RNA sequence: GGGGAGCAUCCAAAAGAUGAGAUGCUACCUGAUACAAUCUUCCUACAGAAAUCUCUGUAGUUUCCUACUUGUAAUACUGAGCAUGUUCUGCAAGUCUCAUAUAUACAGAGACAUGA
Dot-bracket structure: (((.((((((..........)))))).))).......................(((..........(((((((..((.......))..)))))))...........))).......

The family of this 116-nucleotide sequence from Tripterygium wilfordii is "Small nucleolar RNA snoR104". On this family, see Marker et al., Curr Biol 2002: "Experimental RNomics: identification of 140 candidates for small non-messenger RNAs in the plant Arabidopsis thaliana". The family has 8 seed sequences and 612 matches in Rfam 15.1. Rfam classes the family as an H/ACA-box small nucleolar RNA. NCBI's taxonomy places the organism under Eukaryota, Euphyllophyta, Mesangiospermae, Celastrales, Tripterygium.